The record is a 55-nucleotide sequence from Ligilactobacillus salivarius, which matches "salivarius-1 RNA" in Rfam. The source organism's lineage runs through Bacteria, Lactobacillales, Lactobacillaceae, Ligilactobacillus and Ligilactobacillus salivarius.
[Rfam]
RNA sequence: GUCCUACAUCCACAAGAUCUGAGUGGUCGCUUACUUUGAGGGUAAGGUAGGACAU
Numbered sequence: 001g002u003c004c005u006a007c008a009u010c011c012a013c014a015a016g017a018u019c020u021g022a023g024u025g026g027u028c029g030c031u032u033a034c035u036u037u038g039a040g041g042g043u044a045a046g047g048u049a050g051g052a053c054a055u
Stems, first nucleotide, its partner, number of pairs: 001053007010026004022037001028040001030046006